[Rfam]
RNA sequence: CCUGUAUAACUCAGGUUGAUGCGGGAUGUGGCUUUACGGCUGAACCGUUAA
Dot-bracket structure: ((((.......))))......(((.....((((....))))...)))....
The record is a 51-nucleotide RNA, which matches "eL15-Euryarchaeota ribosomal protein leader" in Rfam. By type it is a cis-regulatory leader.